[Rfam]
RNA sequence: UACUUAUAAAGAAAGACUGAGGGAAUGGCCCUGUAACGUCUUGGCAACCUCCGCUCCUGCUGCAGGAAUGAAAGGUGCUAAUUCCAGCUCCGAGAGGAGAAAUAUAAGUA
Numbered sequence: 001u002a003c004u005u006a007u008a009a010a011g012a013a014a015g016a017c018u019g020a021g022g023g024a025a026u027g028g029c030c031c032u033g034u035a036a037c038g039u040c041u042u043g044g045c046a047a048c049c050u051c052c053g054c055u056c057c058u059g060c061u062g063c064a065g066g067a068a069u070g071a072a073a074g075g076u077g078c079u080a081a082u083u084c085c086a087g088c089u090c091c092g093a094g095a096g097g098a099g100a101a102a103u104a105u106a107a108g109u110a
Base pairs, nucleotide, nucleotide: 001110002109003108004107005106006105007104008103013042014041015040016039017038021031022030023029026086027085028084043079044078045077046076048075049074050071051070083102088099089098090097091096

A member of the RNA family "SAM riboswitch aptamer (S box leader)" from Pedobacter antarcticus, 110 nucleotides long. It scores 77 bits against the family's covariance model. NCBI's taxonomy places the organism under Bacteria, Bacteroidota, Sphingobacteriia, Sphingobacteriaceae, Pedobacter antarcticus.